[Rfam]
RNA sequence: AAUAGCCGACUAUGCGGGCAAUUAAACGUAUAGACGCACUUGCGCUGACCGACAGCGGCGUUAAAAAUAAAAGGGAUAUUUAGUGCGGGGAAGGAUA
Numbered sequence: 001a002a003u004a005g006c007c008g009a010c011u012a013u014g015c016g017g018g019c020a021a022u023u024a025a026a027c028g029u030a031u032a033g034a035c036g037c038a039c040u041u042g043c044g045c046u047g048a049c050c051g052a053c054a055g056c057g058g059c060g061u062u063a064a065a066a067a068u069a070a071a072a073g074g075g076a077u078a079u080u081u082a083g084u085g086c087g088g089g090g091a092a093g094g095a096u097a
Stems, first nucleotide, its partner, number of pairs: 005019003010033005035087005043057004

The family of this 97-nucleotide sequence is "GP20-a RNA". Rfam's curators put it in the seed alignment. By type it is a cis-regulatory element.